[Rfam]
RNA sequence: AGAGAAUUGAAUCGUAUUCUUCGUAUAAUUUUGGAAAUAGGGUCCAACCGUCUCUACCAAACUACCGUAAAUAGUUUGACUACGAGGAAGAGAAUGCCUGUC
Number, nucleotide and partner (000 for none) at each position: 001a000002g000003a000004g000005a000006a000007u000008u000009g000010a000011a000012u000013c000014g000015u000016a000017u000018u088019c087020u086021u085022c084023g083024u082025a081026u000027a000028a000029u000030u000031u047032u046033g045034g044035a043036a000037a000038u000039a000040g000041g000042g000043u035044c034045c033046a032047a031048c000049c000050g000051u000052c000053u000054c000055u000056a000057c000058c078059a077060a076061a075062c074063u073064a072065c000066c000067g000068u000069a000070a000071a000072u064073a063074g062075u061076u060077u059078g058079a000080c000081u025082a024083c023084g022085a021086g020087g019088a018089a000090g000091a000092g000093a000094a000095u000096g000097c000098c000099u000100g000101u000102c000
The record is a 102-nucleotide RNA sequence from Paenibacillus dendritiformis, which matches "Purine riboswitch aptamer" in Rfam. Taxonomically the source falls in Paenibacillus dendritiformis (Bacteria, Bacillota, Bacilli, Paenibacillus). The base pairs follow the family's consensus structure, which is taken from published work.